[Rfam]
Nucleotides: 086
Base pairs, nucleotide, nucleotide: 002085003084004083005082006081007080
Number, partner (000 for none) and nucleotide at each position: 001000g002085u003084u004083g005082g006081g007080a008000g009000a010000u011000g012000a013000u014000g015000a016000g017000a018000a019000a020000a021000u022000u023000c024000a025000a026000a027000u028000a029000a030000a031000u032000c033000a034000u035000c036000a037000g038000a039000g040000g041000c042000a043000u044000c045000a046000g047000c048000u049000c050000u051000g052000c053000u054000g055000a056000g057000a058000a059000u060000c061000a062000u063000u064000u065000u066000g067000c068000a069000c070000g071000u072000c073000a074000g075000u076000c077000u078000g079000a080007u081006c082005c083004c084003a085002a086000a